Shown here is a 118-nucleotide RNA, a member of the family "LOOT RNA". It is one of the family's seed sequences.

[Rfam]
RNA sequence: GGCCUACCCCAUAGCUAUUGCUGUGGCAGGGUCGAAAAUCCCGAUGAAGAUACUGAACCCCACGUUCAGCGACUCUUCAUCGGGUCAUAUCGGGAAACCGGUAUGUGGUCGCAAGACC
Number, nucleotide and partner (000 for none) at each position: 001g033002g032003c031004c030005u000006a000007c000008c000009c026010c025011a024012u023013a022014g021015c020016u000017a000018u000019u000020g015021c014022u013023g012024u011025g010026g009027c000028a000029g000030g004031g003032u002033c001034g000035a000036a000037a000038a000039u000040c084041c083042c082043g081044a080045u079046g078047a077048a076049g075050a074051u071052a000053c069054u068055g067056a066057a065058c064059c000060c000061c000062a000063c000064g058065u057066u056067c055068a054069g053070c000071g051072a000073c000074u050075c049076u048077u047078c046079a045080u044081c043082g042083g041084g040085u000086c105087a104088u103089a102090u101091c100092g099093g098094g000095a000096a000097a000098c093099c092100g091101g090102u089103a088104u087105g086106u000107g118108g117109u116110c115111g000112c000113a000114a000115g110116a109117c108118c107